[Rfam]
RNA sequence: UGACGAACUUCGAGCCGACCUGAGUCGACCACCAGGAUCGUCAAUGUCCGAUCGAACCGCGAGCCACAACCAUAACUCGCGGCCCGAACACGGGAGAGAACGCUGAGCGUCACCAU
Numbered sequence: 001u002g003a004c005g006a007a008c009u010u011c012g013a014g015c016c017g018a019c020c021u022g023a024g025u026c027g028a029c030c031a032c033c034a035g036g037a038u039c040g041u042c043a044a045u046g047u048c049c050g051a052u053c054g055a056a057c058c059g060c061g062a063g064c065c066a067c068a069a070c071c072a073u074a075a076c077u078c079g080c081g082g083c084c085c086g087a088a089c090a091c092g093g094g095a096g097a098g099a100a101c102g103c104u105g106a107g108c109g110u111c112a113c114c115a116u
Stems, first nucleotide, its partner, number of pairs: 001043006008036003012032001057082007066073001
The record is a 116-nucleotide RNA from Nocardia uniformis, which matches "atpB RNA" in Rfam. The base pairs follow the family's consensus structure, which is taken from published work. The match comes from Rfam's covariance-model search (58 bits).